[Rfam]
RNA: Caulobacter sRNA CC0196
Organism: Caulobacter radicis
RNA sequence: CUUUUGAAGGCGCCCCACCAUCACUCAACUUUUCACAGCCCGGCUUUCUGGCCGGGCUGUU
Number, nucleotide and partner (000 for none) at each position: 001c000002u000003u000004u000005u000006g000007a000008a000009g000010g000011c000012g000013c000014c000015c000016c000017a000018c000019c000020a000021u000022c000023a000024c000025u000026c000027a000028a000029c000030u000031u000032u000033u000034c000035a000036c059037a058038g057039c056040c055041c054042g053043g052044c051045u000046u000047u000048c000049u000050g000051g044052c043053c042054g041055g040056g039057c038058u037059g036060u000061u000